This 76-nucleotide sequence from Dromaius novaehollandiae belongs to the Rfam family "Small nucleolar RNA SNORD83".
It scores 68 bits against the family's covariance model.
[Rfam]
RNA sequence: GCCAAAUGAUGUCACCUAGAUGGCAUGAGCACUCUGUGCAGAGAUGACCUUCAUCUAUCACCCAAUGCUGAUGGCU
Numbered sequence: 001g002c003c004a005a006a007u008g009a010u011g012u013c014a015c016c017u018a019g020a021u022g023g024c025a026u027g028a029g030c031a032c033u034c035u036g037u038g039c040a041g042a043g044a045u046g047a048c049c050u051u052c053a054u055c056u057a058u059c060a061c062c063c064a065a066u067g068c069u070g071a072u073g074g075c076u
Base pairs, nucleotide, nucleotide: 001075002074003073004072029039030038031037032036
Source information: Lineage of the source: Eukaryota > Sauria > Archosauria > Theropoda > Dromaius. Rfam links the family to the GO terms nucleolus and RNA processing. On this family, see Jady and Kiss, Nucleic Acids Res 2000: "Characterisation of the U83 and U84 small nucleolar RNAs: two novel 2'-O-ribose methylation guide RNAs that lack complementarities to ribosomal RNAs". Rfam 15.1 lists 1,393 matches to the family in 644 species.